[Rfam]
glmS glucosamine-6-phosphate activated ribozyme aptamer: a 160-nucleotide sequence from Clostridium acetireducens. It scores 113 bits against the family's covariance model. Gene Ontology terms of the family: regulation of gene expression and catalytic activity. Rfam's curators write: This entry contains a glucosamine-6-phosphate activated ribozyme that is found in the mRNA for GlmS. GlmS is an enzyme that uses fructose-6-phosphate and glutamine to generate glucosamine-6-phosphate. The ribozyme catalyses self cleavage of the glmS mRNA that is thought to regulate GlmS activity. Pairs were carried over by alignment from the consensus structure, which is taken from published work.
RNA sequence: UAUAAAUUAAAAGCGCCAGGACUUAAAAUGUAGAUAUUUUAAGUUGACGAGGAUGGGGAGUAUCGAAAUGUUCGGCGGAUGCCCCACGGUAUAACACUACCGUUAAAGAUUGAUAAAACUGAAAAGUGAUUUUUGGAACAAUAUCAAUUAGGUGUUAAUA
Numbered sequence: 001u002a003u004a005a006a007u008u009a010a011a012a013g014c015g016c017c018a019g020g021a022c023u024u025a026a027a028a029u030g031u032a033g034a035u036a037u038u039u040u041a042a043g044u045u046g047a048c049g050a051g052g053a054u055g056g057g058g059a060g061u062a063u064c065g066a067a068a069u070g071u072u073c074g075g076c077g078g079a080u081g082c083c084c085c086a087c088g089g090u091a092u093a094a095c096a097c098u099a100c101c102g103u104u105a106a107a108g109a110u111u112g113a114u115a116a117a118a119c120u121g122a123a124a125a126g127u128g129a130u131u132u133u134u135g136g137a138a139c140a141a142u143a144u145c146a147a148u149u150a151g152g153u154g155u156u157a158a159u160a
Base pairs, nucleotide, nucleotide: 020045021044022043023042024041025040026039027038029036054086055085056084057083058082063075064074065073066072087102088101089100090099091098108149109148110147111146112145119136120135121134122133123132124131125130